[Rfam]
RNA sequence: AAAAUUAUCGUCUUCGGCGGAAAGCAGCGCUUUGAUGAAGUUCGGCGGGAUGUCGGCAAAGCGGAUAGGCGUACGGCGCAUUUCACCGAAUUCGGCAAUCAGCUUGGCAUCGCUGCUGUAGACGCGCAGUGGGAUCUGCAACUGGAUGCGGCGCAGCGAGUCCACGGAGGGCAAAGCCGGGCUAAGGUACAGAUAAGCGCCGGAUAGACUGAGCAACAGUCCACAAAAAACGGCUACGCAGGACCACCAGAAGAACUUCAGCAGGCGCAUCAAAAUGUUUGGAUUUCCAGAUAAA
Dot-bracket structure: .........((((((.(.(((..((.(.((.........)).).))((((((.((.(...((......))....).)))))))).(((....))).......(.((.((((...(.(((((((.((...)).).)))))).)..)))).....))..)..))).).))))))....(.(((....((.........((((((...((.....((...((.((.........))))..))....(........)...))...).)))))..........)).....))).).....
Numbered sequence: 001a002a003a004a005u006u007a008u009c010g011u012c013u014u015c016g017g018c019g020g021a022a023a024g025c026a027g028c029g030c031u032u033u034g035a036u037g038a039a040g041u042u043c044g045g046c047g048g049g050a051u052g053u054c055g056g057c058a059a060a061g062c063g064g065a066u067a068g069g070c071g072u073a074c075g076g077c078g079c080a081u082u083u084c085a086c087c088g089a090a091u092u093c094g095g096c097a098a099u100c101a102g103c104u105u106g107g108c109a110u111c112g113c114u115g116c117u118g119u120a121g122a123c124g125c126g127c128a129g130u131g132g133g134a135u136c137u138g139c140a141a142c143u144g145g146a147u148g149c150g151g152c153g154c155a156g157c158g159a160g161u162c163c164a165c166g167g168a169g170g171g172c173a174a175a176g177c178c179g180g181g182c183u184a185a186g187g188u189a190c191a192g193a194u195a196a197g198c199g200c201c202g203g204a205u206a207g208a209c210u211g212a213g214c215a216a217c218a219g220u221c222c223a224c225a226a227a228a229a230a231c232g233g234c235u236a237c238g239c240a241g242g243a244c245c246a247c248c249a250g251a252a253g254a255a256c257u258u259c260a261g262c263a264g265g266c267g268c269a270u271c272a273a274a275a276u277g278u279u280u281g282g283a284u285u286u287c288c289a290g291a292u293a294a295a
Stems, first nucleotide, its partner, number of pairs: 010172006017165001019163003024046002027043001029041002047084006054078002057075001061070002086095003103158001105155002108148004115142001117140006123133001125131002177290001179288003186280002197268005202262001206258002213239002218235002221233002244253001

Record summary
A member of the RNA family "anti ponA RNA" from Pseudomonas sp. GV071, 295 nucleotides long. The literature on the family includes a 2012 paper in PLoS Pathog by Wurtzel et al., "The single-nucleotide resolution transcriptome of Pseudomonas aeruginosa grown in body temperature". Gene Ontology term of the family: response to antibiotic. Transcribed antisense to the penicillin-binding protein 1A gene called ponA. It was identified by RNAseq and the expression was validated by 5' and 3' RACE experiments. AsponA expression was up or down regulated under different antibiotic stress. By type it is an antisense RNA.